[Rfam]
Record summary:
Purine riboswitch aptamer: a 100-nucleotide sequence from Litchfieldia salsa. A search with the family's covariance model found it, with a score of 74 bits.
RNA sequence: UUUAUAACUUUAUAUACUACCUGUAUAACCUCUAGAAUAUGGCUUGAGGGUCUCUACCAGGAACCAUAAAAUCCUGAUUACAGAAAAUGAAUUCUUUUCA
Numbered sequence: 001u002u003u004a005u006a007a008c009u010u011u012a013u014a015u016a017c018u019a020c021c022u023g024u025a026u027a028a029c030c031u032c033u034a035g036a037a038u039a040u041g042g043c044u045u046g047a048g049g050g051u052c053u054c055u056a057c058c059a060g061g062a063a064c065c066a067u068a069a070a071a072u073c074c075u076g077a078u079u080a081c082a083g084a085a086a087a088u089g090a091a092u093u094c095u096u097u098u099c100a
Base pairs, nucleotide, nucleotide: 018086021083022082023081024080025079029049030048031047032046034044035043058076059075060074061073062072